[Rfam]
Rfam assigns this 389-nucleotide RNA sequence from Sphingobium sp. TCM1 to the family "Bacterial RNase P class A". By type it is a ribozyme. The base pairs follow the family's consensus structure, which is taken from published work.
RNA sequence: CCAGAGGGUCGGGCGGCCGCGGCGUGGCGGGUAACUUCCACGGCGAGGAAAGUCCGGGCUUCACGAAAUGACGGUGCCGGCUAACGGCCGGCUGGAGCGAUCCAAGGGACAGUGCAACAGAAAGCAGGUCGCGAAGGUUUCGACCCCGCGAAAUUGAAAGGGUGCGGUAAGAGCGCACCGCGUCUCCGGCAACGGAAGGCGGCACGGUAAACCCCACCGGAAGCAAGACCGAAUAGGGGCGGCGCGCAGUCGAAAGGCUGCUAGGCAUGUUUCGGCCGAGAUCGCCCGGGUUGGUUGCUGGAGGAACGGAGCAAUCCGUUCCCUAGAGGAAUGGUCGCCUAUCCCCUUAACGGGGUGGACAGAACCCGGCUUACAGACCCUCUGGCACU
Number, nucleotide and partner (000 for none) at each position: 001c385002c384003a383004g382005a381006g380007g379008g378009u377010c376011g374012g339013g338014c337015g336016g335017c334018c333019g000020c045021g044022g000023c042024g041025u040026g039027g038028c000029g000030g000031g000032u000033a000034a000035c000036u000037u000038c027039c026040a025041c024042g023043g000044c021045g020046a000047g000048g000049a000050a372051a371052g370053u000054c369055c368056g367057g366058g365059c223060u222061u221062c220063a000064c000065g000066a000067a000068a000069u000070g000071a000072c219073g218074g217075u216076g215077c091078c090079g089080g088081c087082u000083a000084a000085c000086g000087g081088c080089c079090g078091g077092c106093u104094g103095g102096a101097g000098c000099g000100a000101u096102c095103c094104a093105a000106g092107g214108g213109a000110c000111a000112g212113u211114g208115c207116a000117a000118c000119a000120g000121a000122a000123a000124g000125c000126a000127g000128g000129u151130c150131g149132c148133g147134a000135a000136g145137g144138u143139u000140u000141c000142g000143a138144c137145c136146c000147c133148g132149c131150g130151a129152a000153a000154u000155u000156g000157a000158a000159a000160g000161g179162g178163u177164g176165c175166g174167g000168u000169a000170a000171g000172a000173g000174c166175g165176c164177a163178c162179c161180g203181c201182g200183u199184c198185u197186c195187c194188g193189g000190c000191a000192a000193c188194g187195g186196a000197a185198g184199g183200c182201g181202g000203c180204a000205c000206g000207g115208u114209a000210a000211a113212c112213c108214c107215c076216a075217c074218c073219g072220g062221a061222a060223g059224c000225a000226a000227g296228a295229c294230c293231g000232a000233a000234u000235a000236g000237g287238g286239g285240c284241g283242g282243c000244g000245c000246g000247c000248a000249g000250u000251c000252g000253a000254a000255a000256g000257g000258c000259u000260g000261c000262u000263a000264g000265g000266c000267a000268u000269g000270u000271u280272u279273c278274g000275g000276c000277c000278g273279a272280g271281a000282u242283c241284g240285c239286c238287c237288g000289g000290g000291u000292u000293g230294g229295u228296u227297g000298c000299u000300g000301g000302a000303g322304g321305a320306a319307c318308g317309g316310a315311g000312c000313a000314a000315u310316c309317c308318g307319u306320u305321c304322c303323c000324u000325a000326g000327a000328g000329g000330a000331a000332u000333g018334g017335u016336c015337g014338c013339c012340u000341a000342u000343c000344c000345c000346c000347u000348u000349a000350a000351c000352g000353g000354g000355g000356u000357g000358g000359a000360c000361a000362g000363a000364a000365c058366c057367c056368g055369g054370c052371u051372u050373a000374c011375a000376g010377a009378c008379c007380c006381u005382c004383u003384g002385g001386c000387a000388c000389u000